[Rfam]
RNA sequence: GCCACAUGAUGAGCAUAUAGAUGCAGUAGCUCUCGAGCUGUGAUGACCUCCUAUCUAUCACCCUAUUCUGAUGGCU
Numbered sequence: 001g002c003c004a005c006a007u008g009a010u011g012a013g014c015a016u017a018u019a020g021a022u023g024c025a026g027u028a029g030c031u032c033u034c035g036a037g038c039u040g041u042g043a044u045g046a047c048c049u050c051c052u053a054u055c056u057a058u059c060a061c062c063c064u065a066u067u068c069u070g071a072u073g074g075c076u
Stems, first nucleotide, its partner, number of pairs: 001075004029038003
Shown here is a 76-nucleotide sequence from Liparis tanakae, a member of the family "Small nucleolar RNA SNORD83". It scores 48 bits against the family's covariance model. Taxonomically the source falls in Liparis (Eukaryota, Clupeocephala, Euacanthomorphacea, Eupercaria). The family's RNA type in Rfam is C/D-box small nucleolar RNA. On this family, see Jady and Kiss, Nucleic Acids Res 2000: "Characterisation of the U83 and U84 small nucleolar RNAs: two novel 2'-O-ribose methylation guide RNAs that lack complementarities to ribosomal RNAs". Pairs were carried over by alignment from the consensus structure, which was predicted with PFOLD.